[Rfam]
RNA sequence: UCUUAUUGAAGUAGAAAAGGCUCUCUACACACUCUUUUAUAGAGCACCUGAGAUGAUGGGUACGCCGUCUAUCCUUUAAGA
Numbered sequence: 001u002c003u004u005a006u007u008g009a010a011g012u013a014g015a016a017a018a019g020g021c022u023c024u025c026u027a028c029a030c031a032c033u034c035u036u037u038u039a040u041a042g043a044g045c046a047c048c049u050g051a052g053a054u055g056a057u058g059g060g061u062a063c064g065c066c067g068u069c070u071a072u073c074c075u076u077u078a079a080g081a
Stems, first nucleotide, its partner, number of pairs: 001081005008074001011028005019066003030050001032044004055073005

Shown here is an 81-nucleotide RNA, a member of the family "skipping-rope RNA".